Rfam assigns this 170-nucleotide RNA from Clostridium carboxidivorans to the family "M-box riboswitch aptamer (ykoK leader)".
Rfam's curators write: M-box riboswitch, also know as ykoK leader is described as a metaloregulatory RNA that sense divalent metals and function as a genetic control element of genes related to divalent metal transport in bacteria.
For this family Rfam cites "New RNA motifs suggest an expanded scope for riboswitches in bacterial genetic control" (Barrick et al., Proc Natl Acad Sci U S A, 2004).
The organism belongs to Clostridium carboxidivorans, within Bacteria.
[Rfam]
RNA sequence: GUUUACUUAUGUUAGGUGAGGCUCCUAUAUAGAUAUACGCUACUGCCCGGAAACAUCGAGAGAUGCCAAUGGGUCAACAGGUAUUACCGAAUCAAGGUUUUACUUAAUGUAGCUGGACUUAAUAAAAGUCUAAAGCUAUAUAGUGCUAAAACUCGUACGAAGAAGUUUUA
Numbered sequence: 001g002u003u004u005a006c007u008u009a010u011g012u013u014a015g016g017u018g019a020g021g022c023u024c025c026u027a028u029a030u031a032g033a034u035a036u037a038c039g040c041u042a043c044u045g046c047c048c049g050g051a052a053a054c055a056u057c058g059a060g061a062g063a064u065g066c067c068a069a070u071g072g073g074u075c076a077a078c079a080g081g082u083a084u085u086a087c088c089g090a091a092u093c094a095a096g097g098u099u100u101u102a103c104u105u106a107a108u109g110u111a112g113c114u115g116g117a118c119u120u121a122a123u124a125a126a127a128g129u130c131u132a133a134a135g136c137u138a139u140a141u142a143g144u145g146c147u148a149a150a151a152c153u154c155g156u157a158c159g160a161a162g163a164a165g166u167u168u169u170a
Stems, first nucleotide, its partner, number of pairs: 005166004010161001011158002013095001015153003020147003025143008039113005045074005054065004080104004086098003115131005